[Rfam]
Nucleotides: 101
Stems, first nucleotide, its partner, number of pairs: 006096008020044009046081003049077002053075003059069002
Number, partner (000 for none) and nucleotide at each position: 001000a002000u003000a004000u005000c006096g007095c008094g009093u010092g011091c012090g013089g014000g015000a016000g017000a018000g019000a020044a021043u022042c023041g024040c025039c026038g027037g028036g029000g030000c031000c032000a033000u034000g035000c036028c037027c038026u039025g040024g041023u042022g043021g044020u045000c046081g047080c048079c049077g050076a051000a052000g053075g054074c055073g056000c057000a058000a059069c060068c061000g062000g063000c064000c065000c066000c067000c068060g069059g070000a071000a072000a073055c074054g075053c076050u077049c078000a079048g080047g081046c082000a083000a084000a085000a086000g087000g088000g089013c090012c091011g092010c093009a094008c095007g096006c097000g098000a099000c100000a101000g
This 101-nucleotide RNA sequence from Roseococcus suduntuyensis belongs to the Rfam family "Glycine riboswitch aptamer". Rfam describes the family as follows. This family represents the bacterial glycine riboswitch. It scores 65 bits against the family's covariance model.